[Rfam]
RNA sequence: UUAAUUCACUAUUGUAAGUCGCUUUGGAUAAAAGCAUCUACUAAAUGACAUUAU
Numbered sequence: 001u002u003a004a005u006u007c008a009c010u011a012u013u014g015u016a017a018g019u020c021g022c023u024u025u026g027g028a029u030a031a032a033a034g035c036a037u038c039u040a041c042u043a044a045a046u047g048a049c050a051u052u053a054u
Stems, first nucleotide, its partner, number of pairs: 013043001014041003021035005
The family of this 54-nucleotide RNA sequence from Liparis tanakae is "UnaL2 LINE 3' element". The organism belongs to Liparis, within Eukaryota. For this family Rfam cites "Solution structure of an RNA stem-loop derived from the 3' conserved region of eel LINE UnaL2" (Baba et al., RNA, 2004). Rfam describes the family as follows. The eel long interspersed element (LINE) UnaL2 and its partner short interspersed element (SINE) share a conserved 3' tail containing a stem-loop that is critical for their retrotransposition.